[Rfam]
RNA sequence: UUGCACUUCUUAUCAUAGGCUCUCCAAUUCUUUUGAUGUAGCCUCGAGUGAGGGUGCAUAAAUAAAAUCUGUUCAUUCAGCAGUGGCCAGACAACCACGAGAUGGAUCCACUGAUGAACAGCUUAUGAUGCUGUUUGCCUACUAAUUCCAUCUUACAUUU
Numbered sequence: 001u002u003g004c005a006c007u008u009c010u011u012a013u014c015a016u017a018g019g020c021u022c023u024c025c026a027a028u029u030c031u032u033u034u035g036a037u038g039u040a041g042c043c044u045c046g047a048g049u050g051a052g053g054g055u056g057c058a059u060a061a062a063u064a065a066a067a068u069c070u071g072u073u074c075a076u077u078c079a080g081c082a083g084u085g086g087c088c089a090g091a092c093a094a095c096c097a098c099g100a101g102a103u104g105g106a107u108c109c110a111c112u113g114a115u116g117a118a119c120a121g122c123u124u125a126u127g128a129u130g131c132u133g134u135u136u137g138c139c140u141a142c143u144a145a146u147u148c149c150a151u152c153u154u155a156c157a158u159u160u
Base pairs, nucleotide, nucleotide: 002058003057004056005055006054009050013048017044018043019042020041021040022038025035026034099154100153101152102151103150104149105148106147117136118135119133120132121131
A member of the RNA family "small nucleolar RNA snoR143" from Tripterygium wilfordii, 160 nucleotides long. Rfam links the family to the GO terms nucleolus and RNA processing. A search with the family's covariance model found it, with a score of 87 bits. Rfam classes the family as an H/ACA-box small nucleolar RNA. Rfam 15.1 lists 660 matches to the family in 212 species. Pairs were carried over by alignment from the consensus structure, which was predicted with RNAalifold.